[Rfam]
RNA: Guanidine-II riboswitch aptamer (mini-ykkC)
RNA sequence: GCGUGAGGACGACCUCACCACUCCAUGAGUGACCAUCCGGGGACGGCCCCU
Numbered sequence: 001g002c003g004u005g006a007g008g009a010c011g012a013c014c015u016c017a018c019c020a021c022u023c024c025a026u027g028a029g030u031g032a033c034c035a036u037c038c039g040g041g042g043a044c045g046g047c048c049c050c051u
Base pairs, nucleotide, nucleotide: 003018004017005016006015007014008013039050040049041048042047